RNA sequence: AUGUAGUGUGACAUGCCCGUUUGGUAAUUACUCUGAUGCAUGAAUUAUUAAUUAAUUGAUUUUUGGGAAACAGGGUGUUACAGUUCU
Numbered sequence: 001a002u003g004u005a006g007u008g009u010g011a012c013a014u015g016c017c018c019g020u021u022u023g024g025u026a027a028u029u030a031c032u033c034u035g036a037u038g039c040a041u042g043a044a045u046u047a048u049u050a051a052u053u054a055a056u057u058g059a060u061u062u063u064u065g066g067g068a069a070a071c072a073g074g075g076u077g078u079u080a081c082a083g084u085u086c087u
Stems, first nucleotide, its partner, number of pairs: 003086001005084001007082008016074002019071003

About this RNA
A member of the RNA family "MIR2617 microRNA precursor family" from Medicago truncatula, 87 nucleotides long. Taxonomically the source falls in Medicago (Eukaryota, eudicotyledons, Pentapetalae, rosids). The base pairs follow the family's consensus structure, which was predicted with RNAalifold. The family has 3 seed sequences and 1,174 matches in Rfam 15.1.